[Rfam]
RNA sequence: CCUUAUAGGACCUGCAUUGUACACACUGUGUGUAUGGACUGGAGGUGCACAGCGCAUACAAUGUGGAUGCUAUAGAA
Dot-bracket structure: ...........((.(((((((..(.((((((...............)))))).)..))))))).))...........
A member of the RNA family "mir-460 microRNA precursor family" from Anolis carolinensis, 77 nucleotides long.
The family's consensus secondary structure was predicted with RNAalifold.